[Rfam]
RNA sequence: UCCAAGCAUUGAGAGAGGCGCAGGUAAUGUGCCCGGCAACCUGACAACAAAGGUGCCUGCCUUGCACAAGGCGAUGCGCCCCGGACCGGGGAAAGUUGGAAGCGCCU
Numbered sequence: 001u002c003c004a005a006g007c008a009u010u011g012a013g014a015g016a017g018g019c020g021c022a023g024g025u026a027a028u029g030u031g032c033c034c035g036g037c038a039a040c041c042u043g044a045c046a047a048c049a050a051a052g053g054u055g056c057c058u059g060c061c062u063u064g065c066a067c068a069a070g071g072c073g074a075u076g077c078g079c080c081c082c083g084g085a086c087c088g089g090g091g092a093a094a095g096u097u098g099g100a101a102g103c104g105c106c107u
Stems, first nucleotide, its partner, number of pairs: 006077005015034001017033005035057003040053003043048001079091004
RNA: SAM-I/IV (S-adenosyl methionine) riboswitch aptamer